[Rfam]
RNA sequence: GGCGUGAGUGUGCUGGAUCCUGGGAAACAGGUUUAACGGGCGACUAGUCACCGCCGACGCAUCACCACAAUAUAGCC
Numbered sequence: 001g002g003c004g005u006g007a008g009u010g011u012g013c014u015g016g017a018u019c020c021u022g023g024g025a026a027a028c029a030g031g032u033u034u035a036a037c038g039g040g041c042g043a044c045u046a047g048u049c050a051c052c053g054c055c056g057a058c059g060c061a062u063c064a065c066c067a068c069a070a071u072a073u074a075g076c077c
Base pairs, nucleotide, nucleotide: 001077002076003075004071005070008068009067010066012065014059015058019031020030021029022028039055040054041053042052
The family of this 77-nucleotide RNA from Umbravirus patriniae is "Necrovirus cap-independent translation element". Lineage of the source: Viruses > Riboviria > Tolucaviricetes > Tombusviridae > Umbravirus patriniae. The match comes from Rfam's covariance-model search (50 bits).